Description: The family of this 164-nucleotide RNA from Acinetobacter baumannii is "Acinetobacter sRNA 25". Rfam classes the family as a small RNA. The literature on the family includes a 2014 paper in PLoS One by Sharma et al., "Identification of novel regulatory small RNAs in Acinetobacter baumannii". Taxonomically the source falls in Acinetobacter baumannii (Bacteria, Moraxellales, Moraxellaceae, Acinetobacter).
RNA sequence: CCUUUUAAAUCAUGUGUAGGAACGAGCUAUGAUGCAAGCAAUGUUUUUCUUUAGUGCUGGAGCAGUUUUUGGUUAUUGCUAUCGUCAUUACGAUGCUAAAGUUAAAAAAGCCAAUGAUUCAAAAUAAAUGAUUAAAAAAGCCUGCUUCUUGAGUAGGCUUUUUU
Dot-bracket structure: ..((((.((((((...(((.(.((....((((((..(((((((.........(.(((....))).).......)))))))..))))))..)).).)))...............)))))).)))).........((((((((((((((...))))))))))))))